[Rfam]
RNA sequence: UGUCAAGACUUUUUGGCGCCGUUUGAGCGAGUGGUUUUGUUUUGCCUUUAAGAAGGUAGAAGACAAUG
Numbered sequence: 001u002g003u004c005a006a007g008a009c010u011u012u013u014u015g016g017c018g019c020c021g022u023u024u025g026a027g028c029g030a031g032u033g034g035u036u037u038u039g040u041u042u043u044g045c046c047u048u049u050a051a052g053a054a055g056g057u058a059g060a061a062g063a064c065a066a067u068g
Stems, first nucleotide, its partner, number of pairs: 010063005018057003022054003027049001029047001031045004

Annotation: The family of this 68-nucleotide RNA sequence from Phyllobacterium sp. YR531 is "S-element". The organism belongs to Phyllobacterium, within Bacteria. The family's RNA type in Rfam is cis-regulatory element. A reference for the family is Venkova-Canova et al. (2004), "Two discrete elements are required for the replication of a repABC plasmid: an antisense RNA and a stem-loop structure", Mol Microbiol. This family represents a group of S-elements from p42d and related plasmids. The S-element has multiple functions and is believed to act as a negative regulator of repC transcription, be required for efficient replication and act as a translational enhancer of repC. It scores 57 bits against the family's covariance model. Gene Ontology terms of the family: mRNA transcription and translation regulator activity.